[Rfam]
RNA sequence: GGGUGCUUAGCUCAGCCGGGAGAGCAUCGCCCUUACAAGGCGAGGGUCGCAGGUUCGAUCCCUGCAGCACCCA
Numbered sequence: 001g002g003g004u005g006c007u008u009a010g011c012u013c014a015g016c017c018g019g020g021a022g023a024g025c026a027u028c029g030c031c032c033u034u035a036c037a038a039g040g041c042g043a044g045g046g047u048c049g050c051a052g053g054u055u056c057g058a059u060c061c062c063u064g065c066a067g068c069a070c071c072c073a
Base pairs, nucleotide, nucleotide: 001072002071003070004069005068006067007066010025011024012023013022027043028042029041030040031039049065050064051063052062053061
RNA: tRNA
Organism: Candidatus Sedimenticola endophacoides